tRNA: an 83-nucleotide RNA sequence from Lichtheimia corymbifera. A search with the family's covariance model found it, with a score of 58 bits. A reference for the family is Hou (1993), "The tertiary structure of tRNA and the development of the genetic code", Trends Biochem Sci.

RNA sequence: GGAGAGAUGGCCGAGUUGGUCUAAGGCGUCAGGUUAAGGCCCUGAUCUCUUCGGAGGCGUGGGUUCGAAUCCCACUCUCUUCA
Numbered sequence: 001g002g003a004g005a006g007a008u009g010g011c012c013g014a015g016u017u018g019g020u021c022u023a024a025g026g027c028g029u030c031a032g033g034u035u036a037a038g039g040c041c042c043u044g045a046u047c048u049c050u051u052c053g054g055a056g057g058c059g060u061g062g063g064u065u066c067g068a069a070u071c072c073c074a075c076u077c078u079c080u081u082c083a
Base pairs, nucleotide, nucleotide: 001082002081003080004079005078006077007076010027011026012025029045030044031043032042033041059075060074061073062072063071